RNA sequence: ACUCUUGCGCAGUGGCAGUAUCAUAGCCUAUGAGGUUCAACUGAGGCGUGAUUAUUACUAAUUGAAAACUUUACCCAAUACCCCGCCAUGACGACUUGAAAUAUAGUCGGCUUUGGCAAUUUUUGACAGUCUCUAAGGAGA
Number, nucleotide and partner (000 for none) at each position: 001a000002c000003u000004c000005u000006u000007g000008c000009g000010c000011a000012g000013u000014g000015g000016c000017a000018g000019u000020a052021u051022c050023a049024u048025a000026g047027c046028c045029u000030a000031u000032g000033a000034g042035g041036u040037u000038c000039a000040a036041c035042u034043g000044a000045g028046g027047c026048g024049u023050g022051a021052u020053u000054a000055u000056u000057a000058c000059u000060a000061a000062u000063u000064g000065a000066a000067a000068a000069c000070u000071u000072u000073a000074c000075c000076c000077a000078a000079u000080a000081c000082c000083c000084c000085g117086c116087c115088a113089u000090g111091a000092c109093g108094a107095c106096u105097u000098g000099a000100a000101a000102u000103a000104u000105a096106g095107u094108c093109g092110g000111c090112u000113u088114u000115g087116g086117c085118a000119a000120u000121u000122u000123u000124u000125g000126a000127c000128a000129g000130u141131c140132u139133c138134u000135a000136a000137g000138g133139a132140g131141a130
U4 spliceosomal RNA: a 141-nucleotide RNA sequence from Leptobrachium leishanense. The family is grouped with related families in Rfam's "U4 clan". Taxonomically the source falls in Leptobrachium (Eukaryota, Craniata, Euteleostomi, Pelobatoidea). The family's RNA type in Rfam is spliceosomal small nuclear RNA.